[Rfam]
This 564-nucleotide part of an RNA from Lacticaseibacillus brantae belongs to the Rfam family "Bacterial large subunit ribosomal RNA".
The match comes from Rfam's covariance-model search (2951 bits).
Taxonomically the source falls in Lacticaseibacillus brantae (Bacteria, Bacillati, Bacillota, Lactobacillales).
Nucleotides: 564
Base pairs, nucleotide, nucleotide: 007559008558009557010556011555012554013553014552015551016550022544023509024508027480028479029477030476031475032474033473034472035471036469037468038170039169046107047106048105049062050061051060068101069100070099071098072097073096074095077089078088079087112121113120114119122139123138124137125136126135127134128133141167142166144164145163146162147161148160149159175206176204177203178202179201180200186193187192216223217222226465227254228253229252230251231250237245238244257462258461259460260459265284266283267282268281269280270279271278291404292403293402295398296397297396298395299394313390316387317386318385319384320383321382322381323380324379326375327374328373332348334347335346336345337344351355357369358368359367410434411433412432413431414430415429416428417427441456442455443454444453445452496503497502519530520529521528522527
Number, partner (000 for none) and nucleotide at each position: 001000u002000a003000c004000a005000a006000a007559g008558g009557g010556c011555g012554c013553a014552c015551g016550g017000u018000g019000g020000a021000u022544g023509c024508c025000u026000u027480g028479g029477c030476a031475c032474u033473a034472g035471g036469a037468g038170c039169c040000g041000a042000u043000g044000a045000a046107g047106g048105a049062c050061g051060g052000g053000a054000c055000u056000a057000a058000c059000a060051c061050c062049g063000a064000u065000a066000u067000g068101c069100u070099u071098c072097g073096g074095g075000g076000a077089g078088c079087u080000g081000u082000a083000c084000g085000u086000a087079a088078g089077c090000u091000u092000u093000g094000a095074u096073c097072c098071g099070g100069a101068g102000a103000u104000u105048u106047c107046c108000g109000a110000a111000u112121g113120g114119g115000g116000g117000a118000a119114c120113c121112c122139a123138a124137u125136g126135c127134a128133c129000g130000u131000g132000a133128g134127u135126g136125c137124a138123u139122u140000a141167c142166a143000u144164c145163u146162a147161a148160g149159u150000g151000a152000a153000u154000a155000c156000a157000u158000a159149g160148c161147u162146u163145a164144g165000u166142u167141g168000a169039g170038g171000u172000a173000g174000a175206c176204g177203c178202a179201g180200g181000g182000a183000a184000c185000u186193g187192a188000a189000a190000c191000a192187u193186c194000u195000a196000a197000g198000u199000a200180c201179c202178u203177g204176c205000a206175g207000g208000a209000a210000g211000a212000g213000a214000a215000a216223g217222a218000a219000a220000a221000a222217u223216c224000g225000a226465u227254u228253c229252c230251c231250a232000u233000a234000g235000u236000a237245g238244c239000g240000g241000c242000g243000a244238g245237c246000g247000a248000a249000g250231u251230g252229g253228g254227a255000a256000g257462a258461g259460c260459c261000c262000a263000a264000a265284c266283c267282a268281a269280a270279g271278u272000g273000c274000u275000u276000g277000c278271a279270c280269u281268u282267u283266g284265g285000g286000g287000u288000u289000g290000u291404a292403g293402g294000a295398c296397u297396g298395a299394a300000c301000u302000u303000u304000a305000g306000a307000g308000u309000u310000a311000c312000c313390a314000a315000a316387g317386u318385a319384a320383g321382u322381u323380g324379u325000a326375a327374u328373c329000g330000a331000a332348g333000u334347c335346a336345g337344c338000u339000g340000g341000a342000a343000a344337g345336c346335u347334g348332c349000g350000c351355c352000a353000a354000a355351g356000a357369a358368g359367g360000u361000g362000a363000a364000a365000g366000c367359c368358c369357u370000g371000u372000a373328g374327g375326u376000g377000a378000a379324a380323c381322g382321a383320c384319u385318u386317a387316c388000c389000c390313u391000c392000u393000g394299u395298u396297c397296a398295g399000g400000a401000u402293c403292c404291u405000g406000a407000g408000u409000a410434c411433g412432g413431c414430g415429g416428a417427g418000c419000a420000c421000g422000u423000g424000a425000a426000a427417u428416u429415c430414c431413g432412u433411c434410g435000g436000a437000a438000u439000c440000c441456g442455c443454g444453g445452g446000g447000a448000c449000c450000a451000u452445c453444c454443c455442g456441c457000a458000a459260g460259g461258c462257u463000a464000a465226a466000u467000a468037c469036u470000c471035c472034c473033u474032a475031g476030u477029g478000a479028c480027c481000g482000a483000u484000a485000g486000u487000g488000a489000a490000c491000c492000a493000g494000u495000a496503c497502c498000g499000u500000g501000a502497g503496g504000g505000a506000a507000a508024g509023g510000u511000g512000a513000a514000a515000a516000g517000c518000a519530c520529c521528c522527c523000g524000g525000a526000a527522g528521g529520g530519g531000a532000g533000u534000g535000a536000a537000a538000c539000a540000g541000u542000u543000c544022c545000u546000g547000a548000a549000a550016c551015c552014g553013u554012g555011u556010g557009c558008c559007u560000a561000c562000a563000a564000u
Pairs were carried over by alignment from the consensus structure, which is taken from published work.